[Rfam]
Nucleotides: 085
Stems, first nucleotide, its partner, number of pairs: 009076009020066001023063009
Number, partner (000 for none) and nucleotide at each position: 001000g002000c003000u004000g005000u006000u007000u008000u009076c010075g011074g012073g013072u014071g015070g016069a017068u018000u019000u020066c021000u022000c023063u024062g025061c026060a027059a028058u029057u030056u031055u032000a033000a034000u035000a036000u037000u038000g039000g040000c041000g042000c043000a044000a045000a046000u047000c048000u049000g050000u051000a052000a053000u054000a055031a056030a057029a058028a059027u060026u061025g062024c063023a064000c065000g066020g067000u068017a069016u070015c071014c072013a073012u074011c075010u076009g077000u078000a079000a080000c081000c082000c083000g084000c085000u